[Rfam]
RNA sequence: GUCUCUGAUGAUGAUCUAAGUUGAAAAACUUUCGUUCUUCUGAGAUAGAAAAUCCAUGAGGAAUAUUUAUGGAGACCUGAACUGAAGGGAC
Numbered sequence: 001g002u003c004u005c006u007g008a009u010g011a012u013g014a015u016c017u018a019a020g021u022u023g024a025a026a027a028a029c030u031u032u033c034g035u036u037c038u039u040c041u042g043a044g045a046u047a048g049a050a051a052a053u054c055c056a057u058g059a060g061g062a063a064u065a066u067u068u069a070u071g072g073a074g075a076c077c078u079g080a081a082c083u084g085a086a087g088g089g090a091c
Stems, first nucleotide, its partner, number of pairs: 003089004
The record is a 91-nucleotide RNA sequence from Castanea mollissima, which matches "Small nucleolar RNA Z159/U59" in Rfam.
For this family Rfam cites "The high diversity of snoRNAs in plants: identification and comparative study of 120 snoRNA genes from Oryza sativa" (Chen et al., Nucleic Acids Res, 2003).
Rfam 15.1 lists 1,401 matches to the family in 272 species.
Its Rfam clan is "SNORD59 clan".
The organism belongs to Castanea, within Eukaryota.
The base pairs follow the family's consensus structure, which was predicted with PFOLD.